[Rfam]
RNA sequence: GGAGACUUGAGAGGACUUGCCCCUAGUACGAGAGGACCGGGGUGAACGUUCCACUGGUGGACCGGUUGUCGCGCCAGCGGCAGUGCCGGGUAGCCAUGAACGGACAGGAUAACCGCUGAAAGCAUCUAAGCGGGAAGCCCCCCUCAAAACCAGGUCUCCCCAUAAGGACCGUGGUAGACCACCACGUCGAUAGGCCGGACGUGCAAGCGCGGUAACGCGCUCAGCGAACCGGUACUAAUCGUCCAACAG
Numbered sequence: 001g002g003a004g005a006c007u008u009g010a011g012a013g014g015a016c017u018u019g020c021c022c023c024u025a026g027u028a029c030g031a032g033a034g035g036a037c038c039g040g041g042g043u044g045a046a047c048g049u050u051c052c053a054c055u056g057g058u059g060g061a062c063c064g065g066u067u068g069u070c071g072c073g074c075c076a077g078c079g080g081c082a083g084u085g086c087c088g089g090g091u092a093g094c095c096a097u098g099a100a101c102g103g104a105c106a107g108g109a110u111a112a113c114c115g116c117u118g119a120a121a122g123c124a125u126c127u128a129a130g131c132g133g134g135a136a137g138c139c140c141c142c143c144u145c146a147a148a149a150c151c152a153g154g155u156c157u158c159c160c161c162a163u164a165a166g167g168a169c170c171g172u173g174g175u176a177g178a179c180c181a182c183c184a185c186g187u188c189g190a191u192a193g194g195c196c197g198g199a200c201g202u203g204c205a206a207g208c209g210c211g212g213u214a215a216c217g218c219g220c221u222c223a224g225c226g227a228a229c230c231g232g233u234a235c236u237a238a239u240c241g242u243c244c245a246a247c248a249g
Base pairs, nucleotide, nucleotide: 001159002158003157004156005155006154007153008152011145012144013143014142017045018044019043020042021041022040023039047102048101049100050099051098055096056095057094062089063088064087065086066085067082068081069080070079071078072077107139108138113133114132115131116130117129163246166244167243168242169241170186171185172184173183174182191237192236193235194233195232196231197230198229200226201225207220208219209218210217211216

Notes:
The family of this 249-nucleotide part of an RNA from Rubellimicrobium thermophilum is "Bacterial large subunit ribosomal RNA". A search with the family's covariance model found it, with a score of 2599 bits. The organism belongs to Rubellimicrobium thermophilum, within Bacteria.